[Rfam]
RNA sequence: AUUAACAGCUUCUAGGGUUCCGGUUUGAAUUAUUCAAAUGCUGGUCCGAGAGAAGCAAGCUGGCUCAUCUAAGCUCUCUCCUUUCUAAAGUAUUAGAUGAAUCGGUUACACGGCGGGAGAAAAGCCCGGGAGAA
Numbered sequence: 001a002u003u004a005a006c007a008g009c010u011u012c013u014a015g016g017g018u019u020c021c022g023g024u025u026u027g028a029a030u031u032a033u034u035c036a037a038a039u040g041c042u043g044g045u046c047c048g049a050g051a052g053a054a055g056c057a058a059g060c061u062g063g064c065u066c067a068u069c070u071a072a073g074c075u076c077u078c079u080c081c082u083u084u085c086u087a088a089a090g091u092a093u094u095a096g097a098u099g100a101a102u103c104g105g106u107u108a109c110a111c112g113g114c115g116g117g118a119g120a121a122a123a124g125c126c127c128g129g130g131a132g133a134a
Stems, first nucleotide, its partner, number of pairs: 008056005015047002020044002022041001023039006058107006065100008109129001111132001115127003
Rfam assigns this 134-nucleotide sequence from Allocoleopsis franciscana to the family "Guanidine-I riboswitch aptamer".